[Rfam]
This 118-nucleotide sequence from Halalkalibacter nanhaiisediminis belongs to the Rfam family "PyrR binding site". The source organism's lineage runs through Bacteria, Bacillati, Bacilli, Caryophanales and Halalkalibacter. A search with the family's covariance model found it, with a score of 59 bits. It is annotated as a cis-regulatory element. A reference for the family is Bonner et al. (2001), "Molecular recognition of pyr mRNA by the Bacillus subtilis attenuation regulatory protein PyrR", Nucleic Acids Res.
RNA sequence: GCUCCCUUUUAAAUGAAGUACAGAGAGACUUCAAAGGGGUUUGGAGAUUAGAGAGAUAAAAUUUUUUUAUUACUCUACUUCCUUACACCCUGAGAGUCACUCUCAGGGUUUUUUUAUA
Numbered sequence: 001g002c003u004c005c006c007u008u009u010u011a012a013a014u015g016a017a018g019u020a021c022a023g024a025g026a027g028a029c030u031u032c033a034a035a036g037g038g039g040u041u042u043g044g045a046g047a048u049u050a051g052a053g054a055g056a057u058a059a060a061a062u063u064u065u066u067u068u069a070u071u072a073c074u075c076u077a078c079u080u081c082c083u084u085a086c087a088c089c090c091u092g093a094g095a096g097u098c099a100c101u102c103u104c105a106g107g108g109u110u111u112u113u114u115u116a117u118a
Stems, first nucleotide, its partner, number of pairs: 003039007015032005046080002049077005055071005085111001087109010